[Rfam]
RNA sequence: CAUUAUUCUCAGGGCGGGGUGGAAGUCCCCACCGGCGGUAUAUCCAUAGGUUGGAUGAGCCCGCGAGCGCUCGUGUAUCGAGGUCAGCAGAUCUGGUGAGAGGCCAGAGCCGACGGUAAUAGUCCGGAUGAGAGAGAAUAGAG
Numbered sequence: 001c002a003u004u005a006u007u008c009u010c011a012g013g014g015c016g017g018g019g020u021g022g023a024a025g026u027c028c029c030c031a032c033c034g035g036c037g038g039u040a041u042a043u044c045c046a047u048a049g050g051u052u053g054g055a056u057g058a059g060c061c062c063g064c065g066a067g068c069g070c071u072c073g074u075g076u077a078u079c080g081a082g083g084u085c086a087g088c089a090g091a092u093c094u095g096g097u098g099a100g101a102g103g104c105c106a107g108a109g110c111c112g113a114c115g116g117u118a119a120u121a122g123u124c125c126g127g128a129u130g131a132g133a134g135a136g137a138a139u140a141g142a143g
Stems, first nucleotide, its partner, number of pairs: 003141008017029003031123002033112002035064004059110002067088002092108005114126003
Dot-bracket structure: ..((((((((......(((.......))).[[((((((....................[[))))..((..................))...(((((.......)))))]])).(((.....]]))).......))))))))..

This 143-nucleotide RNA from Bacterioplanes sanyensis belongs to the Rfam family "FMN riboswitch aptamer (RFN element)".
Pairs were carried over by alignment from the consensus structure, which is taken from published work.
A search with the family's covariance model found it, with a score of 120 bits.
Rfam describes the family as follows. The RFN element is a highly conserved domain that is found frequently in the 5'-untranslated regions of prokaryotic mRNAs that encode for flavin mononucleotide (FMN) biosynthesis and transport proteins.
Lineage of the source: Bacteria > Pseudomonadota > Oceanospirillales > Oceanospirillaceae > Bacterioplanes.